Shown here is a 147-nucleotide RNA sequence from Cynoglossus semilaevis, a member of the family "Small nucleolar RNA SNORA77".
It is annotated as an H/ACA-box small nucleolar RNA.
Lineage of the source: Eukaryota > Opisthokonta > Actinopterygii > Clupeocephala > Cynoglossus.
Rfam's curators write: ACA63 (SNORA77) is a member of the H/ACA class of snoRNAs that guide the sites of modification of uridines to pseudouridines. This snoRNA was identified by computational screening and its expression in mouse experimentally verified by Northern blot and primer extension analysis. ACA63 is proposed to guide the pseudouridylation of 18S rRNA U814.
The match comes from Rfam's covariance-model search (61 bits).
RNA sequence: GCAGACUCACUCUGUUCCUGGCUGCUGCCUUCAGCCUGGAACUUUUUCUGUCUGCUACAAUGACCUGCAGGAGCUGACGUUUCAAUGGCUUUUAAUUAAUAUUAUUUUAAUUUAAAAAGUCUGUCGUCGGCUCUCUGCUACAUUAGU
Numbered sequence: 001g002c003a004g005a006c007u008c009a010c011u012c013u014g015u016u017c018c019u020g021g022c023u024g025c026u027g028c029c030u031u032c033a034g035c036c037u038g039g040a041a042c043u044u045u046u047u048c049u050g051u052c053u054g055c056u057a058c059a060a061u062g063a064c065c066u067g068c069a070g071g072a073g074c075u076g077a078c079g080u081u082u083c084a085a086u087g088g089c090u091u092u093u094a095a096u097u098a099a100u101a102u103u104a105u106u107u108u109a110a111u112u113u114a115a116a117a118a119g120u121c122u123g124u125c126g127u128c129g130g131c132u133c134u135c136u137g138c139u140a141c142a143u144u145a146g147u
Stems, first nucleotide, its partner, number of pairs: 001055006014042005020036001022034003067138005073131006